[Rfam]
This 57-nucleotide sequence from Tetracentron sinense belongs to the Rfam family "Plastid-ccsA-ndhD-1 3UTR RNA". The base pairs follow the family's consensus structure, which was predicted with LocARNA. Rfam classes the family as a cis-regulatory element.
RNA sequence: GAAUUUUUGAGAACCAUUUGAAUCAAGUAUUUUAGUCAUUCAAAUGGUUCUCAAAAA
Numbered sequence: 001g002a003a004u005u006u007u008u009g010a011g012a013a014c015c016a017u018u019u020g021a022a023u024c025a026a027g028u029a030u031u032u033u034a035g036u037c038a039u040u041c042a043a044a045u046g047g048u049u050c051u052c053a054a055a056a057a
Base pairs, nucleotide, nucleotide: 007054008053009052010051011050012049013048014047015046016045017044018043019042020041021040022039023038025036